Shown here is a 152-nucleotide sequence from Christensenella hongkongensis, a member of the family "Group II catalytic intron D1-D4-7". Rfam links the family to the GO term Group II intron splicing. Rfam's curators write: Group II introns are found in rRNA, tRNA and mRNA of organelles in fungi, plants and protists, and also in mRNA in bacteria. The pairing is the family consensus, mapped onto this sequence.
[Rfam]
RNA sequence: CCCGCUAUUCCGUUAGCGGUAGCCUAGUGACACAUGGAAGACUGGCAACGGUCUUUUGUGAAGCUGUCACGACAAUGUAGCCCUCCGGUAAUUCGGAGAAGCCAAAACCGCGAGGUGAGGGCGAGCCUGCGAGCAUCAAUGUGGGCGGGGCG
Numbered sequence: 001c002c003c004g005c006u007a008u009u010c011c012g013u014u015a016g017c018g019g020u021a022g023c024c025u026a027g028u029g030a031c032a033c034a035u036g037g038a039a040g041a042c043u044g045g046c047a048a049c050g051g052u053c054u055u056u057u058g059u060g061a062a063g064c065u066g067u068c069a070c071g072a073c074a075a076u077g078u079a080g081c082c083c084u085c086c087g088g089u090a091a092u093u094c095g096g097a098g099a100a101g102c103c104a105a106a107a108c109c110g111c112g113a114g115g116u117g118a119g120g121g122c123g124a125g126c127c128u129g130c131g132a133g134c135a136u137c138a139a140u141g142u143g144g145g146c147g148g149g150g151c152g
Base pairs, nucleotide, nucleotide: 002019003018004017005016006015007014028069029068030067031066032065033060034059035058036057037056038055039054040053041052042051043050044049083098084097085096086095087094102120103119108115109114126145127144128143129142130141131140